Background: Rfam assigns this 84-nucleotide RNA sequence to the family "skipping-rope RNA". The family's RNA type in Rfam is small RNA. The family's consensus secondary structure is taken from published work. The sequence is in the family's curated seed alignment.
[Rfam]
RNA sequence: GUUAUUCGAGGUGGUAAAAUUCGUUGCAACCACACACCCUAGUGGUCAAAAGAGAUGCAGGAGAGGCGACGCCUGCCGGAUAAC
Numbered sequence: 001g002u003u004a005u006u007c008g009a010g011g012u013g014g015u016a017a018a019a020u021u022c023g024u025u026g027c028a029a030c031c032a033c034a035c036a037c038c039c040u041a042g043u044g045g046u047c048a049a050a051a052g053a054g055a056u057g058c059a060g061g062a063g064a065g066g067c068g069a070c071g072c073c074u075g076c077c078g079g080a081u082a083a084c
Base pairs, nucleotide, nucleotide: 001084002083003082004081005080006079007078008077011033012032013031014030015029023070024069025068026067027066035052038045039044057076058075059074060073061072